A member of the RNA family "MIR7504 microRNA precursor family" from Gossypium lobatum, 105 nucleotides long. Pairs were carried over by alignment from the consensus structure, which was predicted with RNAalifold. Its family is annotated with RISC complex and miRNA-mediated post-transcriptional gene silencing in the Gene Ontology.

[Rfam]
RNA sequence: UGACAAAUCAGAUUUUUCCUCCUGAUUUUCAGCUUUUUUCUCUUGAAAAAAAAUUCAAAUCCAACUAAAAAUGCUAAAAAUCAGGAGGAAAAAUCUGAUUUGUCA
Numbered sequence: 001u002g003a004c005a006a007a008u009c010a011g012a013u014u015u016u017u018c019c020u021c022c023u024g025a026u027u028u029u030c031a032g033c034u035u036u037u038u039u040c041u042c043u044u045g046a047a048a049a050a051a052a053a054u055u056c057a058a059a060u061c062c063a064a065c066u067a068a069a070a071a072u073g074c075u076a077a078a079a080a081u082c083a084g085g086a087g088g089a090a091a092a093a094u095c096u097g098a099u100u101u102g103u104c105a
Stems, first nucleotide, its partner, number of pairs: 001105017019087011031075002035071004

Rfam 15.1 lists 7,343 matches to the family in 61 species.